Background
ZMP/ZTP riboswitch aptamer (pfl RNA motif): an 80-nucleotide RNA from Rhodococcus sp. P1Y.

RNA sequence: UCCUGACAGGGCAACUGGCGAUAGGUGGUCACCACCGGGGAGCCCCUGAAAGCGAAGCGUCGUCCGCCUGGGUGCUUCAC
Numbered sequence: 001u002c003c004u005g006a007c008a009g010g011g012c013a014a015c016u017g018g019c020g021a022u023a024g025g026u027g028g029u030c031a032c033c034a035c036c037g038g039g040g041a042g043c044c045c046c047u048g049a050a051a052g053c054g055a056a057g058c059g060u061c062g063u064c065c066g067c068c069u070g071g072g073u074g075c076u077u078c079a080c
Base pairs, nucleotide, nucleotide: 003052004051007048008047009045010044011043012042015039016038017068018067019066020065025035026034027033028032057075058074059073060072061071